[Rfam]
RNA sequence: GUGCCUUAAACUUAUGAGUAAGGAAAAUAAAGUGCCUUGGUAACGCUUGGCGCAACCAAGACUCUUUGGUAUUAAUUUUUGCAGAGGUACAGGUCGUCCCUGUGUAGUCUGCCUACUUUUGCGGGCUGCUGGGUUGUUGUGAUCUGCCUC
Numbered sequence: 001g002u003g004c005c006u007u008a009a010a011c012u013u014a015u016g017a018g019u020a021a022g023g024a025a026a027a028u029a030a031a032g033u034g035c036c037u038u039g040g041u042a043a044c045g046c047u048u049g050g051c052g053c054a055a056c057c058a059a060g061a062c063u064c065u066u067u068g069g070u071a072u073u074a075a076u077u078u079u080u081g082c083a084g085a086g087g088u089a090c091a092g093g094u095c096g097u098c099c100c101u102g103u104g105u106a107g108u109c110u111g112c113c114u115a116c117u118u119u120u121g122c123g124g125g126c127u128g129c130u131g132g133g134u135u136g137u138u139g140u141g142a143u144c145u146g147c148c149u150c
Base pairs, nucleotide, nucleotide: 004023005022006021007020008019032053033052034051035050036049039046054070056068058066084150085149086148087147088146091145092144093143094142095141096140097139100133104129105128106127108125109124110123111122112121
The record is a 150-nucleotide RNA sequence from Trichonephila clavata, which matches "U12 minor spliceosomal RNA" in Rfam. The pairing is the family consensus, mapped onto this sequence. Rfam 15.1 lists 2,106 matches to the family in 1,170 species. A search with the family's covariance model found it, with a score of 116 bits. Gene Ontology terms of the family: U12 snRNP, mRNA branch site recognition and pre-mRNA branch point binding.